[Rfam]
A member of the RNA family "Guanidine-I riboswitch aptamer" from Nitrosospira lacus, 106 nucleotides long.
The source organism's lineage runs through Bacteria, Pseudomonadati, Betaproteobacteria, Nitrosomonadales and Nitrosospira.
From the family's description: This family represents a conserved RNA structure found upstream of the ykkC and yxkD genes in Bacillus subtilis and related genes in other bacteria.
RNA sequence: UAAAGGAGAAACUAGGGUUCCGGCUUUCCUUUGGGUAAGUGUCUGGUCCGAGAGUUUCCGGCUUCGUUUUGACGAGGCUCCACGGAGGGAUAAAAGCCCGGGAGAU
Numbered sequence: 001u002a003a004a005g006g007a008g009a010a011a012c013u014a015g016g017g018u019u020c021c022g023g024c025u026u027u028c029c030u031u032u033g034g035g036u037a038a039g040u041g042u043c044u045g046g047u048c049c050g051a052g053a054g055u056u057u058c059c060g061g062c063u064u065c066g067u068u069u070u071g072a073c074g075a076g077g078c079u080c081c082a083c084g085g086a087g088g089g090a091u092a093a094a095a096g097c098c099c100g101g102g103a104g105a106u
Stems, first nucleotide, its partner, number of pairs: 008058005015049002020046002022043001023040004028035001060079008081101001083104001087099003